A member of the RNA family "mir-252 microRNA precursor family" from Nezara viridula, 69 nucleotides long.
NCBI's taxonomy places the organism under Eukaryota, Metazoa, Mandibulata, Eumetabola, Nezara.
The literature on the family includes a 2009 paper in BMC Genomics by Li et al., "Direct sequencing and expression analysis of a large number of miRNAs in Aedes aegypti and a multi-species survey of novel mosquito miRNAs".
Clan: mir-252 microRNA precursor family.
A search with the family's covariance model found it, with a score of 66 bits.
Rfam links the family to the GO terms RISC complex and miRNA-mediated post-transcriptional gene silencing.

RNA sequence: AUCCCAUACUAAGUACUAGUGCCGCAGGAGUUCUUUACCCUCCUGCUGUUCAAGUGCUUAACAUGGCAG
Numbered sequence: 001a002u003c004c005c006a007u008a009c010u011a012a013g014u015a016c017u018a019g020u021g022c023c024g025c026a027g028g029a030g031u032u033c034u035u036u037a038c039c040c041u042c043c044u045g046c047u048g049u050u051c052a053a054g055u056g057c058u059u060a061a062c063a064u065g066g067c068a069g
Stems, first nucleotide, its partner, number of pairs: 002068001004066004010060008019051001024046007